Rfam assigns this 48-nucleotide sequence from Amaricoccus sp. HAR-UPW-R2A-40 to the family "Guanidine-II riboswitch aptamer (mini-ykkC)". A search with the family's covariance model found it, with a score of 38 bits. Rfam's curators write: Simpler in structure and has fewer highly conserved nucleotide positions than the ykkC-yxkD leader.
RNA sequence: CAGCGAGGACGACCUCAGCCCCUUGGAGCUCCCGCCGGGACGACCCGG
Dot-bracket structure: ..((((((....)))).))...............(((((....)))))